A member of the RNA family "Small nucleolar RNA SNORA84" from Galbula dea, 134 nucleotides long. By type it is an H/ACA-box small nucleolar RNA.

RNA sequence: GCCCUGUGGUUACUGGAGGCUGGUUUGUGCAUGCAGUGCUUCAGUUGGGAGAAAUGGGCCGAGAGUGACACUGUGAUUUACGCGUGGAGCUGUGAUCCGUGAGCAGCUUCCACAGCCCGGUGACAGUUACAGAC
Numbered sequence: 001g002c003c004c005u006g007u008g009g010u011u012a013c014u015g016g017a018g019g020c021u022g023g024u025u026u027g028u029g030c031a032u033g034c035a036g037u038g039c040u041u042c043a044g045u046u047g048g049g050a051g052a053a054a055u056g057g058g059c060c061g062a063g064a065g066u067g068a069c070a071c072u073g074u075g076a077u078u079u080a081c082g083c084g085u086g087g088a089g090c091u092g093u094g095a096u097c098c099g100u101g102a103g104c105a106g107c108u109u110c111c112a113c114a115g116c117c118c119g120g121u122g123a124c125a126g127u128u129a130c131a132g133a134c
Stems, first nucleotide, its partner, number of pairs: 001059004007050001010047001012045006019037004071126001073124002076121003082116002084113004088108006
Taxonomically the source falls in Galbula (Eukaryota, Coelurosauria, Telluraves, Piciformes). A search with the family's covariance model found it, with a score of 93 bits. The base pairs follow the family's consensus structure, which was predicted with WAR.